[Rfam]
Overview: This 87-nucleotide RNA from Medicago truncatula belongs to the Rfam family "MIR2617 microRNA precursor family". Lineage of the source: Eukaryota > Tracheophyta > eudicotyledons > Gunneridae > Medicago. The base pairs follow the family's consensus structure, which was predicted with RNAalifold.
RNA sequence: UUGUGAUGUGACAUGCCCGUUUAGUUUUACUCUGAUGUUGAAUUAUUAUUAUUUAAAGGAUUUUGGGAAAUGGGGUGUUACAGUACU
Numbered sequence: 001u002u003g004u005g006a007u008g009u010g011a012c013a014u015g016c017c018c019g020u021u022u023a024g025u026u027u028u029a030c031u032c033u034g035a036u037g038u039u040g041a042a043u044u045a046u047u048a049u050u051a052u053u054u055a056a057a058g059g060a061u062u063u064u065g066g067g068a069a070a071u072g073g074g075g076u077g078u079u080a081c082a083g084u085a086c087u
Stems, first nucleotide, its partner, number of pairs: 003086003007082008016074006